[Rfam]
RNA sequence: UCAUAGCCCCGAUGGCAGUGGCAUCCUUUGCCGACGGGGUUCGGCGGCAAAGAUAAAACGGACAGCGGGUUCAAUG
Dot-bracket structure: ........(((.((...((...(((...(((((.((.....)).)))))..)))...))...)).)))........
Rfam assigns this 76-nucleotide RNA sequence from Flavobacterium succinicans to the family "Flavo-1 RNA". The organism belongs to Flavobacterium, within Bacteria. The family's consensus secondary structure is taken from published work. The match comes from Rfam's covariance-model search (67 bits).